[Rfam]
About this RNA
The record is a 73-nucleotide sequence from Nyctibius bracteatus, which matches "tRNA" in Rfam.

RNA sequence: GCUGAAGUAGCUCAGCUGGGAGAGCGUUAGACUGAAGAUCUAAAGGUCCCCGGUUCAACCUCGGGCUUCAGCA
Numbered sequence: 001g002c003u004g005a006a007g008u009a010g011c012u013c014a015g016c017u018g019g020g021a022g023a024g025c026g027u028u029a030g031a032c033u034g035a036a037g038a039u040c041u042a043a044a045g046g047u048c049c050c051c052g053g054u055u056c057a058a059c060c061u062c063g064g065g066c067u068u069c070a071g072c073a
Base pairs, nucleotide, nucleotide: 001072002071003070004069005068006067007066010025011024012023013022027043028042029041030040031039049065050064051063052062053061
It scores 64 bits against the family's covariance model. Rfam classes the family as a transfer RNA. Pairs were carried over by alignment from the consensus structure, which is taken from published work.